Source information:
The family of this 275-nucleotide RNA sequence from Tetrahymena thermophila is "RNase MRP". Pairs were carried over by alignment from the consensus structure, which is taken from published work. NCBI's taxonomy places the organism under Eukaryota, Sar, Hymenostomatida, Tetrahymenidae, Tetrahymena thermophila.
RNA sequence: CGUUGGAAUAAAGAAUUGUUUUCGAGGCAAACAAAAAAAGUUCUCCUCUUUGCAGAGGAGAGCUUCGACUUUUGUCGAUAACUCAAAACCUUGGGGAAAGUCCUCCUGACUCUGAUAGAAAGUAUCAGUUUUAACUAACGGGGGAUUUCAUCUUUCUGUCGAAGAGGGUUUUUACCCAAAAAGUAAACACCUGAGACUUAAGAGAGAUGAGGUCUUCUUAUCAAUAGCAAAGUUAUACAAUUCUAAGAACACAAGGAGGCUCACUUUAUUCCAAC
Numbered sequence: 001c002g003u004u005g006g007a008a009u010a011a012a013g014a015a016u017u018g019u020u021u022u023c024g025a026g027g028c029a030a031a032c033a034a035a036a037a038a039a040g041u042u043c044u045c046c047u048c049u050u051u052g053c054a055g056a057g058g059a060g061a062g063c064u065u066c067g068a069c070u071u072u073u074g075u076c077g078a079u080a081a082c083u084c085a086a087a088a089c090c091u092u093g094g095g096g097a098a099a100g101u102c103c104u105c106c107u108g109a110c111u112c113u114g115a116u117a118g119a120a121a122g123u124a125u126c127a128g129u130u131u132u133a134a135c136u137a138a139c140g141g142g143g144g145a146u147u148u149c150a151u152c153u154u155u156c157u158g159u160c161g162a163a164g165a166g167g168g169u170u171u172u173u174a175c176c177c178a179a180a181a182a183g184u185a186a187a188c189a190c191c192u193g194a195g196a197c198u199u200a201a202g203a204g205a206g207a208u209g210a211g212g213u214c215u216u217c218u219u220a221u222c223a224a225u226a227g228c229a230a231a232g233u234u235a236u237a238c239a240a241u242u243c244u245a246a247g248a249a250c251a252c253a254a255g256g257a258g259g260c261u262c263a264c265u266u267u268a269u270u271c272c273a274a275c
Stems, first nucleotide, its partner, number of pairs: 002275010014242006022094006099261002102259004114126004128139003141214002147211010158197003167177002170174001